This 111-nucleotide RNA from Nocardia huaxiensis belongs to the Rfam family "SAM (S-adenosyl methionine) riboswitch aptamer". Taxonomically the source falls in Nocardia (Bacteria, Actinomycetota, Mycobacteriales, Nocardiaceae). For this family Rfam cites "The aptamer core of SAM-IV riboswitches mimics the ligand-binding site of SAM-I riboswitches" (Weinberg et al., RNA, 2008). Rfam's curators write: SAM-IV is a mRNA element that regulates gene expression via direct sensing of S-adenosylmethionine (SAM or AdoMet). SAM-IV riboswitches share conserved nucleotide positions with the previously described SAM-I riboswitches sequence analysis and molecular recognition experiments suggest that SAM-I and SAM-IV riboswitches share similar ligand binding sites, but have different scaffolds. Its Rfam clan is "SAM clan".
RNA sequence: GGUCAAGAGCAUCAGCGUCAAGCCCCGGCUAGCUGAUCGGCAACCCUCCAGCUGCGGUGGGGUGCUCCGGGUGAGGACCGGGCGCUCGAGGGCCGAGCGCAAGCGCACCGU
Dot-bracket structure: ((((....(.((((((....((......)).)))))))(((..(((.((......))..))).))).........))))..(((((((.....)))))))...........
Numbered sequence: 001g002g003u004c005a006a007g008a009g010c011a012u013c014a015g016c017g018u019c020a021a022g023c024c025c026c027g028g029c030u031a032g033c034u035g036a037u038c039g040g041c042a043a044c045c046c047u048c049c050a051g052c053u054g055c056g057g058u059g060g061g062g063u064g065c066u067c068c069g070g071g072u073g074a075g076g077a078c079c080g081g082g083c084g085c086u087c088g089a090g091g092g093c094c095g096a097g098c099g100c101a102a103g104c105g106c107a108c109c110g111u
Stems, first nucleotide, its partner, number of pairs: 001079004009038001011037006021030002039066003044062003048057002082100007